[Rfam]
RNA sequence: AGCCUUCUGAAUCCGUGCCAAGAUUUCGUCAGACACCAGACCAUCAGUACUGAUGAGACUCUCAAGACAAAUGAAGUG
Dot-bracket structure: .((.((.(...((..((...((.(((((((.....................)))))))))..)).))...).)).)).